RNA sequence: UGGCUCGAACAGGGACCUGGAAACGAGGGACUCCGUGAGGAAGAGGACGCCAAAGGACGGUCGACCGCUAACGAAGACAAAAGGAGUCAAACUCUUCCGAUCACCGUGGGAACCUGCCGCGUCAGAAUCGAAGGUAAGUGACGUCAAUGGGACAAGAAUUAAGCCAACAUCAAAUAUAUGUAGGACAAUUAAAAGAGGCUUUAAAGAUACGAGGAGUAAAGGUUAAAGGUAAUGAUUUGUUUAAAUUUUUGAUUUUGUAAAAGACACUUGCCCUU
Numbered sequence: 001u002g003g004c005u006c007g008a009a010c011a012g013g014g015a016c017c018u019g020g021a022a023a024c025g026a027g028g029g030a031c032u033c034c035g036u037g038a039g040g041a042a043g044a045g046g047a048c049g050c051c052a053a054a055g056g057a058c059g060g061u062c063g064a065c066c067g068c069u070a071a072c073g074a075a076g077a078c079a080a081a082a083g084g085a086g087u088c089a090a091a092c093u094c095u096u097c098c099g100a101u102c103a104c105c106g107u108g109g110g111a112a113c114c115u116g117c118c119g120c121g122u123c124a125g126a127a128u129c130g131a132a133g134g135u136a137a138g139u140g141a142c143g144u145c146a147a148u149g150g151g152a153c154a155a156g157a158a159u160u161a162a163g164c165c166a167a168c169a170u171c172a173a174a175u176a177u178a179u180g181u182a183g184g185a186c187a188a189u190u191a192a193a194a195g196a197g198g199c200u201u202u203a204a205a206g207a208u209a210c211g212a213g214g215a216g217u218a219a220a221g222g223u224u225a226a227a228g229g230u231a232a233u234g235a236u237u238u239g240u241u242u243a244a245a246u247u248u249u250u251g252a253u254u255u256u257g258u259a260a261a262a263g264a265c266a267c268u269u270g271c272c273c274u275u
Stems, first nucleotide, its partner, number of pairs: 005028002034046001036044001091135003095131002101127001102125001105121005143153002145149001160203003163199003210251004215247003220238006260275002263272001265270001
RNA: Mason-Pfizer monkey virus packaging signal
Organism: Macaca fascicularis